[Rfam]
RNA sequence: UUCCGGCCACCGGUUGAAAUCCCCCGGGGUCGCCCCCAUAAUUGCCGUACGGUCGUAAUUCCGGCAACCCGGAAGCGUUCUGGACGGCGGUUCGAUUCCGCCCACCUCCACCACAGGGGGGGUGAUCUGGUCUCGACAGGGCGAAAGAAGGCGAGCAGGCGGCCCGAAAGGCGACGGACGUAAUCCGCGCAAAUCCACAAACGCCAACGAUGAGCGUUUCGCAAUGGCCGCUUAAGGCCUGCUGAGGACAUAGCCGUCCGAUAAACAGAAUGGCUAUCGGCGGGGGCUUCGGCCCCCGUCGUCA
Numbered sequence: 001u002u003c004c005g006g007c008c009a010c011c012g013g014u015u016g017a018a019a020u021c022c023c024c025c026g027g028g029g030u031c032g033c034c035c036c037c038a039u040a041a042u043u044g045c046c047g048u049a050c051g052g053u054c055g056u057a058a059u060u061c062c063g064g065c066a067a068c069c070c071g072g073a074a075g076c077g078u079u080c081u082g083g084a085c086g087g088c089g090g091u092u093c094g095a096u097u098c099c100g101c102c103c104a105c106c107u108c109c110a111c112c113a114c115a116g117g118g119g120g121g122g123u124g125a126u127c128u129g130g131u132c133u134c135g136a137c138a139g140g141g142c143g144a145a146a147g148a149a150g151g152c153g154a155g156c157a158g159g160c161g162g163c164c165c166g167a168a169a170g171g172c173g174a175c176g177g178a179c180g181u182a183a184u185c186c187g188c189g190c191a192a193a194u195c196c197a198c199a200a201a202c203g204c205c206a207a208c209g210a211u212g213a214g215c216g217u218u219u220c221g222c223a224a225u226g227g228c229c230g231c232u233u234a235a236g237g238c239c240u241g242c243u244g245a246g247g248a249c250a251u252a253g254c255c256g257u258c259c260g261a262u263a264a265a266c267a268g269a270a271u272g273g274c275u276a277u278c279g280g281c282g283g284g285g286g287c288u289u290c291g292g293c294c295c296c297c298g299u300c301g302u303c304a
Stems, first nucleotide, its partner, number of pairs: 051164005061159002064156002068151002076143007086102005103124007165180002246259003250277006280299008
RNA: Betaproteobacteria transfer-messenger RNA